[Rfam]
RNA sequence: GGAAGUGUGUGCUAGUGAUGGCACAGCUGAACAUUGAUCGCUAAGGUAUAGAAAUAUAGCAGAUCUGCUCAGUGAGUGUUGUCACGUGGUCGCUUCAAGUAGCUUGUGUUCGGCUCCCGAUUGCGCGUAUCAUCAAAUUCGUGAUGUUUCGGCAUCAAGGGUUUGUUGAAACGCCUGCACGGUUGAGUCUUCACGUCGCUCCUCGAACUACCGCGAUUUCCAAAUUGGGGGGCAAUCGAAUAGGUCAGACGAGGUAAUUUAUCGCUUCCAUAUACAGGCACUGCAGAUUCGCAGUAUGCCAUUUUUUUC
Numbered sequence: 001g002g003a004a005g006u007g008u009g010u011g012c013u014a015g016u017g018a019u020g021g022c023a024c025a026g027c028u029g030a031a032c033a034u035u036g037a038u039c040g041c042u043a044a045g046g047u048a049u050a051g052a053a054a055u056a057u058a059g060c061a062g063a064u065c066u067g068c069u070c071a072g073u074g075a076g077u078g079u080u081g082u083c084a085c086g087u088g089g090u091c092g093c094u095u096c097a098a099g100u101a102g103c104u105u106g107u108g109u110u111c112g113g114c115u116c117c118c119g120a121u122u123g124c125g126c127g128u129a130u131c132a133u134c135a136a137a138u139u140c141g142u143g144a145u146g147u148u149u150c151g152g153c154a155u156c157a158a159g160g161g162u163u164u165g166u167u168g169a170a171a172c173g174c175c176u177g178c179a180c181g182g183u184u185g186a187g188u189c190u191u192c193a194c195g196u197c198g199c200u201c202c203u204c205g206a207a208c209u210a211c212c213g214c215g216a217u218u219u220c221c222a223a224a225u226u227g228g229g230g231g232g233c234a235a236u237c238g239a240a241u242a243g244g245u246c247a248g249a250c251g252a253g254g255u256a257a258u259u260u261a262u263c264g265c266u267u268c269c270a271u272a273u274a275c276a277g278g279c280a281c282u283g284c285a286g287a288u289u290c291g292c293a294g295u296a297u298g299c300c301a302u303u304u305u306u307u308u309c
Base pairs, nucleotide, nucleotide: 001269002268003267004266005265006264007263015085016084017083018082019081027072028071029070032067033066036065037064038063039062040060041059042058043057277300278299279298280295281294282293283292284291
Rfam assigns this 309-nucleotide sequence from Microctonus aethiopoides to the family "Arthropod 7SK RNA".
The literature on the family includes a 2008 paper in Mol Biol Evol by Gruber et al., "Arthropod 7SK RNA".
Clan: 7SK clan.
The family's RNA type in Rfam is non-coding RNA gene.